[Rfam]
RNA: DABA-DC-AT RNA
Organism: Grimontia hollisae
RNA sequence: ACAAUCUCGAACAAAGAGUUUUCGGGACACACGCGGCGCAAUGUUGAAGAAGUUGUCGCCGCACCGUAGGUAUCAGGGAAUGGUUCUCUGAUAGAAGGGCAUUAAUAGCGCUGUCUGGCUCAAGCUAAGCCGGGGCAUAUUGAGGAACCCAACA
Numbered sequence: 001a002c003a004a005u006c007u008c009g010a011a012c013a014a015a016g017a018g019u020u021u022u023c024g025g026g027a028c029a030c031a032c033g034c035g036g037c038g039c040a041a042u043g044u045u046g047a048a049g050a051a052g053u054u055g056u057c058g059c060c061g062c063a064c065c066g067u068a069g070g071u072a073u074c075a076g077g078g079a080a081u082g083g084u085u086c087u088c089u090g091a092u093a094g095a096a097g098g099g100c101a102u103u104a105a106u107a108g109c110g111c112u113g114u115c116u117g118g119c120u121c122a123a124g125c126u127a128a129g130c131c132g133g134g135g136c137a138u139a140u141u142g143a144g145g146a147a148c149c150c151a152a153c154a
Stems, first nucleotide, its partner, number of pairs: 006026006033062006039055003071093010114134007